[Rfam]
RNA sequence: CUGUUAAGUGAUGAUAUGAAAGAUGAAGUGUCACGUCAUCACGUUCAAUCACUGACACGUGAUUGCCACAUCAUUGAAGGUGAUGACAUGAUAAUGAGAUGUUUGUAAAAAGAAGUGAUGAUGUCACACUUUGUCUACCACAUCAUCACUUAAUGAAA
Numbered sequence: 001c002u003g004u005u006a007a008g009u010g011a012u013g014a015u016a017u018g019a020a021a022g023a024u025g026a027a028g029u030g031u032c033a034c035g036u037c038a039u040c041a042c043g044u045u046c047a048a049u050c051a052c053u054g055a056c057a058c059g060u061g062a063u064u065g066c067c068a069c070a071u072c073a074u075u076g077a078a079g080g081u082g083a084u085g086a087c088a089u090g091a092u093a094a095u096g097a098g099a100u101g102u103u104u105g106u107a108a109a110a111a112g113a114a115g116u117g118a119u120g121a122u123g124u125c126a127c128a129c130u131u132u133g134u135c136u137a138c139c140a141c142a143u144c145a146u147c148a149c150u151u152a153a154u155g156a157a158a
Stems, first nucleotide, its partner, number of pairs: 002155014017140002021136011033124010044113002049108001051106002054103004071086004

Record summary:
The family of this 158-nucleotide sequence from Glycine max is "MIR4371 microRNA precursor family". The family has 4 seed sequences and 321 matches in Rfam 15.1. The match comes from Rfam's covariance-model search (112 bits).